[Rfam]
A member of the RNA family "Bacterial large subunit ribosomal RNA" from Halobacteriovorax marinus, 362 nucleotides of a longer RNA.

RNA sequence: UGGGAGAACUCUAGUUAAGGAACUCUGCAAAUUGGUGCCGUAACUUCGGGAGAAGGCACGCCUUGCUUGGUGACAUCACUUGCUGGUGAAGCUGAACGAGGUCGCAGUGAAGAGGGGGUAGCGACUGUUUAUCAAAAACAUAGGUCUAUGCAAACUCGCAAGAGGAUGUAUAUGGACUGACGCCUGCCCGGUGCUGGAAGGUUAAGAGGAGAGGUUAGCUUUCGGGCGAAGCUUCGAAUUGAAGCCCCAGUAAACGGCGGCCGUAACUAUAACGGUCCUAAGGUAGCGAAAUUCCUAGUCGGGUAAGUUCCGACCUGCACGAAUGGCGUAACGACUUCCCCACUGUCUCAACUAGAGGCCCA
Numbered sequence: 001u002g003g004g005a006g007a008a009c010u011c012u013a014g015u016u017a018a019g020g021a022a023c024u025c026u027g028c029a030a031a032u033u034g035g036u037g038c039c040g041u042a043a044c045u046u047c048g049g050g051a052g053a054a055g056g057c058a059c060g061c062c063u064u065g066c067u068u069g070g071u072g073a074c075a076u077c078a079c080u081u082g083c084u085g086g087u088g089a090a091g092c093u094g095a096a097c098g099a100g101g102u103c104g105c106a107g108u109g110a111a112g113a114g115g116g117g118g119u120a121g122c123g124a125c126u127g128u129u130u131a132u133c134a135a136a137a138a139c140a141u142a143g144g145u146c147u148a149u150g151c152a153a154a155c156u157c158g159c160a161a162g163a164g165g166a167u168g169u170a171u172a173u174g175g176a177c178u179g180a181c182g183c184c185u186g187c188c189c190g191g192u193g194c195u196g197g198a199a200g201g202u203u204a205a206g207a208g209g210a211g212a213g214g215u216u217a218g219c220u221u222u223c224g225g226g227c228g229a230a231g232c233u234u235c236g237a238a239u240u241g242a243a244g245c246c247c248c249a250g251u252a253a254a255c256g257g258c259g260g261c262c263g264u265a266a267c268u269a270u271a272a273c274g275g276u277c278c279u280a281a282g283g284u285a286g287c288g289a290a291a292u293u294c295c296u297a298g299u300c301g302g303g304u305a306a307g308u309u310c311c312g313a314c315c316u317g318c319a320c321g322a323a324u325g326g327c328g329u330a331a332c333g334a335c336u337u338c339c340c341c342a343c344u345g346u347c348u349c350a351a352c353u354a355g356a357g358g359c360c361c362a
Stems, first nucleotide, its partner, number of pairs: 001362004009357008018348003035059005044049001060102006067082001069080004103107001115341004120336002122333002126140003143178008151168001155164003181328004186258003191255002193251005200246003206240002211235005218227002259277006278282001288315001298314006
The family's consensus secondary structure is taken from published work.